[Rfam]
RNA sequence: UCUCGUGGCUUCCAUGCAGAAGUGCACGGAAACAGCUGUUUGCUAUCGAAAAGUUGGCUGUUACUGUUCUUCUGAUGGAGGCUGCUGGA
Numbered sequence: 001u002c003u004c005g006u007g008g009c010u011u012c013c014a015u016g017c018a019g020a021a022g023u024g025c026a027c028g029g030a031a032a033c034a035g036c037u038g039u040u041u042g043c044u045a046u047c048g049a050a051a052a053g054u055u056g057g058c059u060g061u062u063a064c065u066g067u068u069c070u071u072c073u074g075a076u077g078g079a080g081g082c083u084g085c086u087g088g089a
Base pairs, nucleotide, nucleotide: 001089002088003087005085006084007083008082009081010080011079012078013077014076015075017074018073019072020071021070022069026067027066028065029064031062032061033060034059035058036057037056038055040053041052
RNA: mir-2131 microRNA precursor family
Organism: Gallus gallus